Notes:
The record is a 168-nucleotide RNA sequence from Eubacterium sp. AF36-5BH, which matches "Clostridiales-1 RNA" in Rfam. It scores 123 bits against the family's covariance model. The family's RNA type in Rfam is small RNA.

RNA sequence: UGAUUACAGUGUAUCAAAGUCAUUCCACAUCUGUGCUUGCACUAUGAUGGGGAUGUGACUUUGAGACACGCCCCUGUAUGAGCAUAAAAGUGAAGCGGUAGCUUCACGAUAUGCGAAUACUUGGGCAGGAUUGUGGGAGUGCGUAGCACGGAGCAAUCCGGGUAAUCU
Numbered sequence: 001u002g003a004u005u006a007c008a009g010u011g012u013a014u015c016a017a018a019g020u021c022a023u024u025c026c027a028c029a030u031c032u033g034u035g036c037u038u039g040c041a042c043u044a045u046g047a048u049g050g051g052g053a054u055g056u057g058a059c060u061u062u063g064a065g066a067c068a069c070g071c072c073c074c075u076g077u078a079u080g081a082g083c084a085u086a087a088a089a090g091u092g093a094a095g096c097g098g099u100a101g102c103u104u105c106a107c108g109a110u111a112u113g114c115g116a117a118u119a120c121u122u123g124g125g126c127a128g129g130a131u132u133g134u135g136g137g138a139g140u141g142c143g144u145a146g147c148a149c150g151g152a153g154c155a156a157u158c159c160g161g162g163u164a165a166u167c168u
Stems, first nucleotide, its partner, number of pairs: 002167006010068003017061007024053003028049004033042003072125003076121001077119003082114004090107007128159007139149004